[Rfam]
RNA sequence: AUGUGUAUGUAUGCAUGCAUGCAUGCAUGCAUGCAUGCAUGCAUGCAUGCAUGCAUGCAUGCAAGUAUGUAUGCAUGUAUGUACGUAUGUACGUAUGUACGUAUGUACGUACGUAUGUAUGUAUGUAUGUAUGUAUGUGAAUGCAGGUAUGUAUGUGUGUGUACAUAU
Number, nucleotide and partner (000 for none) at each position: 001a000002u000003g000004u000005g000006u000007a168008u000009g000010u069011a068012u067013g066014c000015a000016u063017g062018c061019a060020u059021g058022c057023a056024u055025g054026c053027a052028u051029g050030c049031a048032u000033g046034c045035a044036u043037g042038c000039a000040u000041g000042c037043a036044u035045g034046c033047a000048u031049g030050c029051a028052u027053g026054c025055a024056u023057g022058c021059a020060u019061g018062c017063a016064a000065g000066u013067a012068u011069g010070u000071a000072u000073g130074c129075a128076u127077g126078u125079a124080u123081g120082u119083a118084c117085g000086u000087a000088u000089g112090u111091a110092c109093g108094u107095a106096u105097g104098u103099a000100c000101g000102u000103a098104u097105g096106u095107a094108c093109g092110u091111a090112c089113g000114u000115a000116u000117g084118u083119a082120u081121g000122u000123a080124u079125g078126u077127a076128u075129g074130u073131a000132u000133g164134u163135a162136u161137g000138u000139g000140a000141a154142u153143g152144c151145a000146g000147g000148u000149a000150u000151g144152u143153a142154u141155g000156u000157g000158u000159g000160u000161g136162u135163a134164c133165a000166u000167a000168u007
Annotation:
Clostridiales-1 RNA: a 168-nucleotide sequence. A search with the family's covariance model found it, with a score of 52 bits.